[Rfam]
RNA sequence: ACCUCCUGCCCUCGUGAUCGUCUUCUCACCUUUCACCGGGCAGGUGGAGAGAAAGGGAGGGCCCCCGUACGGACGUGACGUACGGGGGCCCUCC
Numbered sequence: 001a002c003c004u005c006c007u008g009c010c011c012u013c014g015u016g017a018u019c020g021u022c023u024u025c026u027c028a029c030c031u032u033u034c035a036c037c038g039g040g041c042a043g044g045u046g047g048a049g050a051g052a053a054a055g056g057g058a059g060g061g062c063c064c065c066c067g068u069a070c071g072g073a074c075g076u077g078a079c080g081u082a083c084g085g086g087g088g089c090c091c092u093c094c
Stems, first nucleotide, its partner, number of pairs: 002046001005044007014036004020030001056094016
The record is a 94-nucleotide RNA from Streptomyces abyssalis, which matches "sodF sRNA" in Rfam. On this family, see Kim et al., Nucleic Acids Res 2014: "Inverse regulation of Fe- and Ni-containing SOD genes by a Fur family regulator Nur through small RNA processed from 3'UTR of the sodF mRNA". The pairing is the family consensus, mapped onto this sequence. Taxonomically the source falls in Streptomyces (Bacteria, Actinomycetota, Actinomycetes, Kitasatosporales).